[Rfam]
RNA sequence: GGAGUAAAUUGAAUAAUCGCGUCAAUGACGAGGAAAGUCCGUGCACCACAGAGUAAGGAUGCUAGAUAACGUCUAGUAAGGGUGACCUUCAGGCAAGUGCAAAAGAAAGUAUACCGCCAAAAAUUUUUGGUAAGGGUGGAACGGUGAGGUAAGAGCUCACCAGAUAAUUAGUGAUAAUUAUGCUGUGUAAACCCCAUCCGGUGCAAGAACAAAAGGGACAUUAGGAUUUCUACUCGAAACAGUCCAGUAUGGUAGUUCGCUUGAGCUAAUUGGUGACAAUUAGCCUAGAUAGAUGAUUAUUUUUAACAGAACACGGCUUAUAGAUUUACUCUAUUU
Numbered sequence: 001g002g003a004g005u006a007a008a009u010u011g012a013a014u015a016a017u018c019g020c021g022u023c024a025a026u027g028a029c030g031a032g033g034a035a036a037g038u039c040c041g042u043g044c045a046c047c048a049c050a051g052a053g054u055a056a057g058g059a060u061g062c063u064a065g066a067u068a069a070c071g072u073c074u075a076g077u078a079a080g081g082g083u084g085a086c087c088u089u090c091a092g093g094c095a096a097g098u099g100c101a102a103a104a105g106a107a108a109g110u111a112u113a114c115c116g117c118c119a120a121a122a123a124u125u126u127u128u129g130g131u132a133a134g135g136g137u138g139g140a141a142c143g144g145u146g147a148g149g150u151a152a153g154a155g156c157u158c159a160c161c162a163g164a165u166a167a168u169u170a171g172u173g174a175u176a177a178u179u180a181u182g183c184u185g186u187g188u189a190a191a192c193c194c195c196a197u198c199c200g201g202u203g204c205a206a207g208a209a210c211a212a213a214a215g216g217g218a219c220a221u222u223a224g225g226a227u228u229u230c231u232a233c234u235c236g237a238a239a240c241a242g243u244c245c246a247g248u249a250u251g252g253u254a255g256u257u258c259g260c261u262u263g264a265g266c267u268a269a270u271u272g273g274u275g276a277c278a279a280u281u282a283g284c285c286u287a288g289a290u291a292g293a294u295g296a297u298u299a300u301u302u303u304u305a306a307c308a309g310a311a312c313a314c315g316g317c318u319u320a321u322a323g324a325u326u327u328a329c330u331c332u333a334u335u336u
Base pairs, nucleotide, nucleotide: 001332002331003330004329005328006327007326008325009324010323011321012301013300014299015298016297017296018295020030021029022028023027035319036318037317039316040315041314042313043312044203045202046201047200053234057199058198059197060196061195062076063075064074065073066072077091078089079088080087081086092194093193097192098191099188100187101186114135115134116131117130118129119128120127121126143161144160145159146158147157148156163183164181165180166179167178168177169176170175207258208257209256210255217244218243219242227239228238229237230236265284266283267282268281269280270279271278272277

This 336-nucleotide RNA from Anaerococcus vaginalis belongs to the Rfam family "Bacterial RNase P class A".
The family's RNA type in Rfam is ribozyme.
The family's consensus secondary structure is taken from published work.
Lineage of the source: Bacteria > Bacillota > Tissierellia > Tissierellales > Anaerococcus vaginalis.